[Rfam]
RNA sequence: AUGGAGUAUUCCGAAAAUCCAGAACAGAGUAGGAA
Numbered sequence: 001a002u003g004g005a006g007u008a009u010u011c012c013g014a015a016a017a018u019c020c021a022g023a024a025c026a027g028a029g030u031a032g033g034a035a
Base pairs, nucleotide, nucleotide: 002021003020004019005018010034011033012032

About this RNA:
Shown here is a 35-nucleotide RNA, a member of the family "DUF805b RNA". Its Rfam clan is "DUF805 clan". The sequence is in the family's curated seed alignment. It is annotated as a cis-regulatory element.